[Rfam]
RNA sequence: CUGAGCCUUGCUCGUCGGGGUUGCGUACCGCCAUAGCUAGUGCGCAUCCCCGUCGAGCGCUGCUCGGCG
Numbered sequence: 001c002u003g004a005g006c007c008u009u010g011c012u013c014g015u016c017g018g019g020g021u022u023g024c025g026u027a028c029c030g031c032c033a034u035a036g037c038u039a040g041u042g043c044g045c046a047u048c049c050c051c052g053u054c055g056a057g058c059g060c061u062g063c064u065c066g067g068c069g
Base pairs, nucleotide, nucleotide: 002066003065004064005063006062009059010058011057012056013055014054016052017051018050019049020048022046023045024044025043026042027041028040030037031036
Rfam assigns this 69-nucleotide sequence from Panicum virgatum to the family "MIR531 microRNA precursor family". The family's consensus secondary structure was predicted with RNAalifold. Gene Ontology terms of the family: RISC complex and miRNA-mediated post-transcriptional gene silencing.